This 73-nucleotide RNA sequence from Aeromicrobium sp. Root472D3 belongs to the Rfam family "Actino-pnp RNA".
RNA sequence: CUCGGUCCUCGGUAGUGGCCGUCGGGACGCUCGCAGCACGUGGGCUCCCCGCAGGCCUCGAUCGAAGACCGGC
Numbered sequence: 001c002u003c004g005g006u007c008c009u010c011g012g013u014a015g016u017g018g019c020c021g022u023c024g025g026g027a028c029g030c031u032c033g034c035a036g037c038a039c040g041u042g043g044g045c046u047c048c049c050c051g052c053a054g055g056c057c058u059c060g061a062u063c064g065a066a067g068a069c070c071g072g073c
Base pairs, nucleotide, nucleotide: 002072003071004070005069006068007067009065010064011063012062013061017057018056019055020054023051024050025049026048027046
The base pairs follow the family's consensus structure, which is taken from published work. It is annotated as a cis-regulatory element. It scores 56 bits against the family's covariance model.